[Rfam]
RNA sequence: AAUUUGCGUUAGGGAUUGCAGCGGCAUCCUUUUUAUGUUAAUUCGAGUGUUUUAUUUUGAAGUGAUAACGGAAAAAUAAAAUGUAUCGAGAAUACAUAAAAAGAUACAGCGAAAAGCCCGACCUUUA
Numbered sequence: 001a002a003u004u005u006g007c008g009u010u011a012g013g014g015a016u017u018g019c020a021g022c023g024g025c026a027u028c029c030u031u032u033u034u035a036u037g038u039u040a041a042u043u044c045g046a047g048u049g050u051u052u053u054a055u056u057u058u059g060a061a062g063u064g065a066u067a068a069c070g071g072a073a074a075a076a077u078a079a080a081a082u083g084u085a086u087c088g089a090g091a092a093u094a095c096a097u098a099a100a101a102a103g104a105u106a107c108a109g110c111g112a113a114a115a116g117c118c119c120g121a122c123c124u125u126u127a
Stems, first nucleotide, its partner, number of pairs: 012119003016115002021110002026105003032100007
RNA: Flavo-1 RNA